[Rfam]
RNA sequence: ACUGGAGGACUAAGAAGGUGGAGUCUGUUAAGUGGGACUUUGCUGAUACCAUCCUCCUAGAAGAAGGGGAUGGAGAGAGCAGGCCAACUUAUAGAAGAGCAGAGGUCUGACUGUACCAUCCGACAUUU
Numbered sequence: 001a002c003u004g005g006a007g008g009a010c011u012a013a014g015a016a017g018g019u020g021g022a023g024u025c026u027g028u029u030a031a032g033u034g035g036g037a038c039u040u041u042g043c044u045g046a047u048a049c050c051a052u053c054c055u056c057c058u059a060g061a062a063g064a065a066g067g068g069g070a071u072g073g074a075g076a077g078a079g080c081a082g083g084c085c086a087a088c089u090u091a092u093a094g095a096a097g098a099g100c101a102g103a104g105g106u107c108u109g110a111c112u113g114u115a116c117c118a119u120c121c122g123a124c125a126u127u128u
Stems, first nucleotide, its partner, number of pairs: 002060002004057006017044003021040006067121003078112002080109006090101001092099001
The record is a 128-nucleotide RNA from Pelusios castaneus, which matches "Small Cajal body specific RNA 4" in Rfam. Rfam links the family to the GO terms Cajal body, RNA processing and nucleolus. On this family, see Darzacq et al., EMBO J 2002: "Cajal body-specific small nuclear RNAs: a novel class of 2'-O-methylation and pseudouridylation guide RNAs". The organism belongs to Pelusios, within Eukaryota. Rfam's curators write: scaRNAs are a specific class of small nuclear RNAs which localise to the Cajal bodies and guide the modification of RNA polymerase II transcribed spliceosomal RNAs U1, U2, U4, U5 and U12. ACA26 belongs to the H/ACA box class of guide RNAs as it has the predicted hairpin-hinge-hairpin-tail structure, conserved H/ACA-box motifs and is found associated with GAR1. The family's RNA type in Rfam is small Cajal body RNA. Clan: SCARNA4 clan.